[Rfam]
RNA sequence: UACAUGCUAAGAAGGGGCACACAGGUAAAGCAUUCUUCUGCCUCACCACUUUAUAGUUGCUCUACCUGUGUUGUUAUGUUACAACGACU
Numbered sequence: 001u002a003c004a005u006g007c008u009a010a011g012a013a014g015g016g017g018c019a020c021a022c023a024g025g026u027a028a029a030g031c032a033u034u035c036u037u038c039u040g041c042c043u044c045a046c047c048a049c050u051u052u053a054u055a056g057u058u059g060c061u062c063u064a065c066c067u068g069u070g071u072u073g074u075u076a077u078g079u080u081a082c083a084a085c086g087a088c089u
Base pairs, nucleotide, nucleotide: 005083006082008081009080010079016075017074018073019072020070021069022068023067024066025065026064027063029061030060031059032058035056036055

Shown here is an 89-nucleotide RNA from Wolbachia endosymbiont of Drosophila melanogaster, a member of the family "Wolbachia sRNA 59". A reference for the family is Mayoral et al. (2014), "Wolbachia small noncoding RNAs and their role in cross-kingdom communications", Proc Natl Acad Sci U S A. The family's RNA type in Rfam is small RNA. The base pairs follow the family's consensus structure. Lineage of the source: Bacteria > Pseudomonadati > Alphaproteobacteria > Rickettsiales > Wolbachia.